Shown here is a 219-nucleotide sequence, a member of the family "PAGEV RNA".
RNA sequence: AUAUGCCGCUUGGAAUCAUGAUGCUGUGGGCGGCAUAGCGUAAUAGCCGACCAUCACGGGGAUCUUGUCAGGUCGGCAGGUAUAGCCAGCACGGGCCGAAAGUAGGCGCUUGGAAGAACUCCCGCCCAUGUUUCAGGUUUCCGAAUUUUAUAGGCGCGUGCUGCCGUGAGCCUACAAGGGGUAGCCCUCAGCGGUGAGGGCUAGAAGUCACGGACGCCU
Numbered sequence: 001a002u003a004u005g006c007c008g009c010u011u012g013g014a015a016u017c018a019u020g021a022u023g024c025u026g027u028g029g030g031c032g033g034c035a036u037a038g039c040g041u042a043a044u045a046g047c048c049g050a051c052c053a054u055c056a057c058g059g060g061g062a063u064c065u066u067g068u069c070a071g072g073u074c075g076g077c078a079g080g081u082a083u084a085g086c087c088a089g090c091a092c093g094g095g096c097c098g099a100a101a102g103u104a105g106g107c108g109c110u111u112g113g114a115a116g117a118a119c120u121c122c123c124g125c126c127c128a129u130g131u132u133u134c135a136g137g138u139u140u141c142c143g144a145a146u147u148u149u150a151u152a153g154g155c156g157c158g159u160g161c162u163g164c165c166g167u168g169a170g171c172c173u174a175c176a177a178g179g180g181g182u183a184g185c186c187c188u189c190a191g192c193g194g195u196g197a198g199g200g201c202u203a204g205a206a207g208u209c210a211c212g213g214a215c216g217c218c219u
Base pairs, nucleotide, nucleotide: 002037003036004035005034006033007032008031009030010029046077047076048075049074050073051072065177066176067175068174087163088162089161090160091159092158093157095155096154164213165212166211167210168209169208182203183202184201185200186199187198188197
The family's RNA type in Rfam is small RNA.